c-di-GMP-I riboswitch aptamer: an 80-nucleotide RNA from Methylococcus sp. EFPC2.
[Rfam]
RNA sequence: CAUGCCGCGCGCCACACCGGCUGCGAAGCCGGGCCGGAAAGCUCAGGGUCUUAGGAUGACAAGACAGCCGGGUUGCCUCU
Numbered sequence: 001c002a003u004g005c006c007g008c009g010c011g012c013c014a015c016a017c018c019g020g021c022u023g024c025g026a027a028g029c030c031g032g033g034c035c036g037g038a039a040a041g042c043u044c045a046g047g048g049u050c051u052u053a054g055g056a057u058g059a060c061a062a063g064a065c066a067g068c069c070g071g072g073u074u075g076c077c078u079c080u
Stems, first nucleotide, its partner, number of pairs: 012037002017032006040074004046069002048065005

It scores 43 bits against the family's covariance model.